Record summary: Shown here is a 93-nucleotide sequence from Streptomyces pluripotens, a member of the family "Streptomyces RNA 3202". A reference for the family is Vockenhuber et al. (2011), "Deep sequencing-based identification of small non-coding RNAs in Streptomyces coelicolor", RNA Biol. From the family's description: Identified by deep sequencing of transcriptome at the end of exponential growth phase. The source organism's lineage runs through Bacteria, Bacillati, Actinomycetes, Streptomycetaceae and Streptomyces. The base pairs follow the family's consensus structure. The match comes from Rfam's covariance-model search (65 bits). The family's RNA type in Rfam is small RNA.
[Rfam]
RNA sequence: CCAGGUCCCGACGCACAUCCCCCCCCGGCGGCGGGACCUUCCGGAGCCGGGCUCCGGCGCCUACCCCCCCAGGCGCCGGGGCCCGGCUUUCCU
Numbered sequence: 001c002c003a004g005g006u007c008c009c010g011a012c013g014c015a016c017a018u019c020c021c022c023c024c025c026c027g028g029c030g031g032c033g034g035g036a037c038c039u040u041c042c043g044g045a046g047c048c049g050g051g052c053u054c055c056g057g058c059g060c061c062u063a064c065c066c067c068c069c070c071a072g073g074c075g076c077c078g079g080g081g082c083c084c085g086g087c088u089u090u091c092c093u
Base pairs, nucleotide, nucleotide: 005037006036007035008034009033010032012030013029014028044089045088046087047086048085049084050083051082052081053080055078056077057076058075059074060073061072062071